RNA sequence: GGUAGUCUUCGGGGCAGGGUGAAAUUCCCGACCGGCGGUAUAGUCCGCGAGCGGCGAAAGCUGCUGAACUGGUGAAAUUCCAGUACCGACAGUAUAGUCUGGAUGAAAGAAGAUGUUA
Numbered sequence: 001g002g003u004a005g006u007c008u009u010c011g012g013g014g015c016a017g018g019g020u021g022a023a024a025u026u027c028c029c030g031a032c033c034g035g036c037g038g039u040a041u042a043g044u045c046c047g048c049g050a051g052c053g054g055c056g057a058a059a060g061c062u063g064c065u066g067a068a069c070u071g072g073u074g075a076a077a078u079u080c081c082a083g084u085a086c087c088g089a090c091a092g093u094a095u096a097g098u099c100u101g102g103a104u105g106a107a108a109g110a111a112g113a114u115g116u117u118a
Stems, first nucleotide, its partner, number of pairs: 005114006017029003031098002033088002035048004043086002051064003068084005090101003